The family of this 74-nucleotide RNA sequence from Homo sapiens is "mir-7973 microRNA precursor family".

[Rfam]
RNA sequence: UGUGACCCUAGAAUAAUUACUCACCCUCUCAAAACCGAGACUCAGAGACGUUGGGUAAUUAUUCUAGGGUCACA
Numbered sequence: 001u002g003u004g005a006c007c008c009u010a011g012a013a014u015a016a017u018u019a020c021u022c023a024c025c026c027u028c029u030c031a032a033a034a035c036c037g038a039g040a041c042u043c044a045g046a047g048a049c050g051u052u053g054g055g056u057a058a059u060u061a062u063u064c065u066a067g068g069g070u071c072a073c074a
Stems, first nucleotide, its partner, number of pairs: 001074023025050001027048004